The record is a 68-nucleotide sequence from Dichanthelium oligosanthes, which matches "Small nucleolar RNA Z105" in Rfam. On this family, see Chen et al., Nucleic Acids Res 2003: "The high diversity of snoRNAs in plants: identification and comparative study of 120 snoRNA genes from Oryza sativa".
[Rfam]
RNA sequence: CUGGCAUAAUGAGGAAAAACUAGAUUUUUCUGAUCUUUUUGAUGAGAAAUACCUCCUACUCAUUCUGA
Numbered sequence: 001c002u003g004g005c006a007u008a009a010u011g012a013g014g015a016a017a018a019a020c021u022a023g024a025u026u027u028u029u030c031u032g033a034u035c036u037u038u039u040u041g042a043u044g045a046g047a048a049a050u051a052c053c054u055c056c057u058a059c060u061c062a063u064u065c066u067g068a
Stems, first nucleotide, its partner, number of pairs: 006063002009060001028047002030041001

The match comes from Rfam's covariance-model search (66 bits). Its family is annotated with RNA processing and nucleolus in the Gene Ontology.